mir-2 microRNA precursor family: a 72-nucleotide sequence from Musca domestica. A reference for the family is Lee and Ambros (2001), "An extensive class of small RNAs in Caenorhabditis elegans", Science. Gene Ontology terms of the family: RISC complex and miRNA-mediated post-transcriptional gene silencing. Lineage of the source: Eukaryota > Altocrustacea > Endopterygota > Aparaglossata > Musca.
[Rfam]
RNA sequence: UCCUUCUUCAGAGGGGCUGUGAAAUGUUUUGACUUUAAAUAGGCAUAUCACAGCCAGCUUUGAGGAGCGAUA
Numbered sequence: 001u002c003c004u005u006c007u008u009c010a011g012a013g014g015g016g017c018u019g020u021g022a023a024a025u026g027u028u029u030u031g032a033c034u035u036u037a038a039a040u041a042g043g044c045a046u047a048u049c050a051c052a053g054c055c056a057g058c059u060u061u062g063a064g065g066a067g068c069g070a071u072a
Base pairs, nucleotide, nucleotide: 005066006065007064008063009062010061011060012059013058015055016054017053018052019051020050021049022048025047026046027045